[Rfam]
RNA sequence: CGGAAGAACCUUUGUUAAGGAACUCGGCAAAAUGUCCCCGUAACUUCGGGAGAAGGGGAGCCAUAGCGAUAUGGCCACAGAAACCAGGCCCAAGCGACUGUUUACCAAAAACACAAGUUUCUGCAAAAUCGUAAGAUGAAGUAUAGGAGCUGACACCUGCCCGGUGCUGGAAGGUUAAGGAGAAGGCUUAGCGCAAGCGAAGGCUCGAACUUAAGCCCCAGUAAACGGCGGCCGUAACUAUAACGGUCCUAAGGUAGCGAAAUUCCUUGUCGGGUAAGUUCCGACCCGCACGAAAGGUGUAACGAUUUGGGCACUGUCUCAACAAAGGAUCCG
Numbered sequence: 001c002g003g004a005a006g007a008a009c010c011u012u013u014g015u016u017a018a019g020g021a022a023c024u025c026g027g028c029a030a031a032a033u034g035u036c037c038c039c040g041u042a043a044c045u046u047c048g049g050g051a052g053a054a055g056g057g058g059a060g061c062c063a064u065a066g067c068g069a070u071a072u073g074g075c076c077a078c079a080g081a082a083a084c085c086a087g088g089c090c091c092a093a094g095c096g097a098c099u100g101u102u103u104a105c106c107a108a109a110a111a112c113a114c115a116a117g118u119u120u121c122u123g124c125a126a127a128a129u130c131g132u133a134a135g136a137u138g139a140a141g142u143a144u145a146g147g148a149g150c151u152g153a154c155a156c157c158u159g160c161c162c163g164g165u166g167c168u169g170g171a172a173g174g175u176u177a178a179g180g181a182g183a184a185g186g187c188u189u190a191g192c193g194c195a196a197g198c199g200a201a202g203g204c205u206c207g208a209a210c211u212u213a214a215g216c217c218c219c220a221g222u223a224a225a226c227g228g229c230g231g232c233c234g235u236a237a238c239u240a241u242a243a244c245g246g247u248c249c250u251a252a253g254g255u256a257g258c259g260a261a262a263u264u265c266c267u268u269g270u271c272g273g274g275u276a277a278g279u280u281c282c283g284a285c286c287c288g289c290a291c292g293a294a295a296g297g298u299g300u301a302a303c304g305a306u307u308u309g310g311g312c313a314c315u316g317u318c319u320c321a322a323c324a325a326a327g328g329a330u331c332c333g
Stems, first nucleotide, its partner, number of pairs: 001333004009328008018319003035059005044049001060075006076080001088312007095304002099113003116151008124141001128137003154299004159229003164226002166222005173217003179211002185205004191198002230248006249253001259286001269285006
RNA: Bacterial large subunit ribosomal RNA, nucleotides 1888 to 2220
Organism: Anaerococcus lactolyticus